RNA sequence: GUGGAGCGCCCCUAGGGUUCCGCCGGUUCCGCUCCGCCGAACCGGGCCGUGACCGAGAGGGGCAGGCGCGGCCACCGCCGCGUUCCACGGCGGGACAAAAGCCCGGGAGAC
Numbered sequence: 001g002u003g004g005a006g007c008g009c010c011c012c013u014a015g016g017g018u019u020c021c022g023c024c025g026g027u028u029c030c031g032c033u034c035c036g037c038c039g040a041a042c043c044g045g046g047c048c049g050u051g052a053c054c055g056a057g058a059g060g061g062g063c064a065g066g067c068g069c070g071g072c073c074a075c076c077g078c079c080g081c082g083u084u085c086c087a088c089g090g091c092g093g094g095a096c097a098a099a100a101g102c103c104c105g106g107g108a109g110a111c
Stems, first nucleotide, its partner, number of pairs: 008063005015054002020051001022048001023045006065084008086106001088109001092104003
This 111-nucleotide RNA from Actinomycetospora sp. TBRC 11914 belongs to the Rfam family "Guanidine-I riboswitch aptamer".
The source organism's lineage runs through Bacteria, Bacillati, Actinomycetota, Pseudonocardiales and Actinomycetospora.
The base pairs follow the family's consensus structure.